[Rfam]
RNA sequence: AGGGUAGCUCCCUAUUCUUGGUGAAGGUAAGCCGAGAGUACAUACAUAUUAUGUUUCGUAUGUAUUGUAAUGCCACAUAUUGUAGUUAAUGCACUAUCUAUGGUAUGGAUGGGACACUAACGAUUACAACGUUAGCGCAAAAACUGAAUUUCCAAACAUGGCCCGAGAGCAACGGAAAUUAGCAGUUAGAUUUAAACAAAUGGAAACACACAAUUGUUUGAAUCCUAUAUUAAAUCCUGGUGUUUCAGGUGUACAGAGGUGCAAAUCUGUACUAUAUUUACUAUGGGUUGAAAUUCCCUGGGGUA
Numbered sequence: 001a002g003g004g005u006a007g008c009u010c011c012c013u014a015u016u017c018u019u020g021g022u023g024a025a026g027g028u029a030a031g032c033c034g035a036g037a038g039u040a041c042a043u044a045c046a047u048a049u050u051a052u053g054u055u056u057c058g059u060a061u062g063u064a065u066u067g068u069a070a071u072g073c074c075a076c077a078u079a080u081u082g083u084a085g086u087u088a089a090u091g092c093a094c095u096a097u098c099u100a101u102g103g104u105a106u107g108g109a110u111g112g113g114a115c116a117c118u119a120a121c122g123a124u125u126a127c128a129a130c131g132u133u134a135g136c137g138c139a140a141a142a143a144c145u146g147a148a149u150u151u152c153c154a155a156a157c158a159u160g161g162c163c164c165g166a167g168a169g170c171a172a173c174g175g176a177a178a179u180u181a182g183c184a185g186u187u188a189g190a191u192u193u194a195a196a197c198a199a200a201u202g203g204a205a206a207c208a209c210a211c212a213a214u215u216g217u218u219u220g221a222a223u224c225c226u227a228u229a230u231u232a233a234a235u236c237c238u239g240g241u242g243u244u245u246c247a248g249g250u251g252u253a254c255a256g257a258g259g260u261g262c263a264a265a266u267c268u269g270u271a272c273u274a275u276a277u278u279u280a281c282u283a284u285g286g287g288u289u290g291a292a293a294u295u296c297c298c299u300g301g302g303g304u305a
Base pairs, nucleotide, nucleotide: 001013002012003011004010016037017036018035019034020033021032022031038065039064040063041062042061043060044059077106078105079104080103081102082101083100084099085098087096111226112225113224114223115137117135118134119133120132121131122130143186144185145184146183149178150177151176152175153174159171160170191222192221193220194219195218196217197216198215236249237248238247239246251272252271253270254269255268256267257266285298286297287296
Dot-bracket structure: ((((.....))))..(((((((........)))))))(((((((..............)))))))...........(((((((((.(........).)))))))))....(((((.((((((.......)))))).).....((((..(((((.....((.........))..)))))....))))....((((((((................)))))))))))).........((((......)))).(((((((........)))))))............(((........))).......